[Rfam]
RNA sequence: GGCCUGUGAUGUUCAAAUUGUCCGUACCAUCUGAGAUUAAGCUUUUUCACAAUCGCUCUGAUGCAUACGUUAAUUAUUUAUUCUGAGGCUA
Dot-bracket structure: ((((..................................................................................)))).

small nucleolar RNA snoR117: a 91-nucleotide RNA from Lupinus albus. It is annotated as a C/D-box small nucleolar RNA. On this family, see Chen and Wu, Nucleic Acids Res 2009: "Mining small RNA sequencing data: a new approach to identify small nucleolar RNAs in Arabidopsis". The match comes from Rfam's covariance-model search (57 bits). Its family is annotated with RNA processing and nucleolus in the Gene Ontology. The source organism's lineage runs through Eukaryota, Spermatophyta, Fabales, Genisteae and Lupinus.